[Rfam]
RNA sequence: CCCGCCACUAUGCCCGUCUGUUAGUGACUGAGUAUAAUCCAGUGGAGGCUAAGAUUGACCCAGCUCUAGGAAGCAGGGCUGCCCAUACAAAUGGGCAAUUCUGUGCCGAAAGACCUGGAACAAGU
Numbered sequence: 001c002c003c004g005c006c007a008c009u010a011u012g013c014c015c016g017u018c019u020g021u022u023a024g025u026g027a028c029u030g031a032g033u034a035u036a037a038u039c040c041a042g043u044g045g046a047g048g049c050u051a052a053g054a055u056u057g058a059c060c061c062a063g064c065u066c067u068a069g070g071a072a073g074c075a076g077g078g079c080u081g082c083c084c085a086u087a088c089a090a091a092u093g094g095g096c097a098a099u100u101c102u103g104u105g106c107c108g109a110a111a112g113a114c115c116u117g118g119a120a121c122a123a124g125u
Stems, first nucleotide, its partner, number of pairs: 005045005018032002021026001060118004065112001067110001069107002074103005082095003